[Rfam]
The record is a 130-nucleotide RNA from Neogobius melanostomus, which matches "Small nucleolar RNA SNORA14" in Rfam. Its family is annotated with RNA processing and nucleolus in the Gene Ontology. ACA14 is a member of the H/ACA class of snoRNA that guide the sites of modification of uridines to pseudouridines. Pairs were carried over by alignment from the consensus structure, which was predicted with RNAfold. Taxonomically the source falls in Neogobius (Eukaryota, Neoteleostei, Euacanthomorphacea, Benthophilinae).
RNA sequence: UGGCAUCCUUGAAAACCCCUCAGUAACUCUCGAUAGUUUCUGGGACAAGAAAGAAUGCUAGAAUAAGCUUAGAAUUCCAAAGCUGAGAGUCAUGACAGUUGCUCUUUGCUAUUUCACCUCUAAGACAAUG
Numbered sequence: 001u002g003g004c005a006u007c008c009u010u011g012a013a014a015a016c017c018c019c020u021c022a023g024u025a026a027c028u029c030u031c032g033a034u035a036g037u038u039u040c041u042g043g044g045a046c047a048a049g050a051a052a053g054a055a056u057g058c059u060a061g062a063a064u065a066a067g068c069u070u071a072g073a074a075u076u077c078c079a080a081a082g083c084u085g086a087g088a089g090u091c092a093u094g095a096c097a098g099u100u101g102c103u104c105u106u107u108g109c110u111a112u113u114u115c116a117c118c119u120c121u122a123a124g125a126c127a128a129u130g
Stems, first nucleotide, its partner, number of pairs: 003058004009050002019044005025038003063129002068124006081110003085106003089102002093098001